[Rfam]
RNA sequence: GGGCCGGCUAUAGCCCAGCGGUUACUUCGGUCUCUACACGCUAUUGUGUUCCGCCCCGUCAGGGGUUCGAUACCGCGGGCACCCCUGGCUCAUUU
Number, nucleotide and partner (000 for none) at each position: 001g000002g090003g089004c088005c087006g086007g085008c000009u000010a000011u000012a000013g080014c079015c078016c077017a000018g076019c075020g074021g073022u000023u000024a000025c000026u000027u070028c069029g068030g067031u000032c000033u000034c000035u000036a000037c000038a000039c000040g000041c000042u000043a000044u000045u000046g000047u000048g000049u000050u000051c000052c000053g000054c000055c000056c000057c000058g000059u000060c000061a000062g000063g000064g000065g000066u000067u030068c029069g028070a027071u000072a000073c021074c020075g019076c018077g016078g015079g014080c013081a000082c000083c000084c000085c007086u006087g005088g004089c003090u002091c000092a000093u000094u000095u000